[Rfam]
RNA sequence: GGACCGUGAGGACAGCAGUUUGUUGUUUGGCCCUUUGGGCAAAAAUUGAAUUCGGGAGGAUUAGUCUCCCAGGUUAGCCCGCAAUUCUUAUGAGUAACUCCUGUAACGGUACCCCCAUUUUCACAGCGAAGGUCAUCUCCCAAAGCUAUCGCAGUCAGCCCUAGAAGGACUAAGCUCGCUAUUAUUGCU
Numbered sequence: 001g002g003a004c005c006g007u008g009a010g011g012a013c014a015g016c017a018g019u020u021u022g023u024u025g026u027u028u029g030g031c032c033c034u035u036u037g038g039g040c041a042a043a044a045a046u047u048g049a050a051u052u053c054g055g056g057a058g059g060a061u062u063a064g065u066c067u068c069c070c071a072g073g074u075u076a077g078c079c080c081g082c083a084a085u086u087c088u089u090a091u092g093a094g095u096a097a098c099u100c101c102u103g104u105a106a107c108g109g110u111a112c113c114c115c116c117a118u119u120u121u122c123a124c125a126g127c128g129a130a131g132g133u134c135a136u137c138u139c140c141c142a143a144a145g146c147u148a149u150c151g152c153a154g155u156c157a158g159c160c161c162u163a164g165a166a167g168g169a170c171u172a173a174g175c176u177c178g179c180u181a182u183u184a185u186u187g188c189u
Stems, first nucleotide, its partner, number of pairs: 004011002015188005025175006032168004037161004054070006126152004131147002
This 189-nucleotide RNA sequence from Coxiella burnetii belongs to the Rfam family "Coxiella burnetii sRNA 14". NCBI's taxonomy places the organism under Bacteria, Pseudomonadota, Coxiellaceae, Coxiella, Coxiella burnetii. About the family: In bacteria small regulatory RNAs are activated during stress and virulence conditions. On this family, see Warrier et al., PLoS One 2014: "Identification of novel small RNAs and characterization of the 6S RNA of Coxiella burnetii". Rfam's curators put it in the seed alignment. The base pairs follow the family's consensus structure, which was predicted with CMfinder. It is annotated as a small RNA.